[Rfam]
RNA sequence: GGUGAAAGGUGUGCAUAGUGUUGGUCUGUGUCAUGUGCUGCUGCUGGACUGUGUUUUGCUGUCUGGGCAGCAGCACUCACUCCACACCUGUAGCCGUACAGCAACUGGAGAUCAUAGUACUGGCCCAUGGCGUCUUAAUGACAACUUAGCAUCGGCCAGCCUCCAAACUCUCCAACACUG
Numbered sequence: 001g002g003u004g005a006a007a008g009g010u011g012u013g014c015a016u017a018g019u020g021u022u023g024g025u026c027u028g029u030g031u032c033a034u035g036u037g038c039u040g041c042u043g044c045u046g047g048a049c050u051g052u053g054u055u056u057u058g059c060u061g062u063c064u065g066g067g068c069a070g071c072a073g074c075a076c077u078c079a080c081u082c083c084a085c086a087c088c089u090g091u092a093g094c095c096g097u098a099c100a101g102c103a104a105c106u107g108g109a110g111a112u113c114a115u116a117g118u119a120c121u122g123g124c125c126c127a128u129g130g131c132g133u134c135u136u137a138a139u140g141a142c143a144a145c146u147u148a149g150c151a152u153c154g155g156c157c158a159g160c161c162u163c164c165a166a167a168c169u170c171u172c173c174a175a176c177a178c179u180g
Stems, first nucleotide, its partner, number of pairs: 013091003030080002035077001036075006043068002045065003051059002107173005120159006127152003132142003
RNA: Small nucleolar RNA SNORA23